[Rfam]
RNA: ZMP/ZTP riboswitch aptamer (pfl RNA motif)
Organism: Actinomadura litoris
RNA sequence: GGCGGUCGACGCGACUGGCGCGGUCAAGGUGGAUCACCACCGGGGAGCGAACACAGUCCGGACACCGCGCGCCUGGGUGGACGGG
Numbered sequence: 001g002g003c004g005g006u007c008g009a010c011g012c013g014a015c016u017g018g019c020g021c022g023g024u025c026a027a028g029g030u031g032g033a034u035c036a037c038c039a040c041c042g043g044g045g046a047g048c049g050a051a052c053a054c055a056g057u058c059c060g061g062a063c064a065c066c067g068c069g070c071g072c073c074u075g076g077g078u079g080g081a082c083g084g085g
Stems, first nucleotide, its partner, number of pairs: 003056001005054002010049003015044002017073005029040004063079004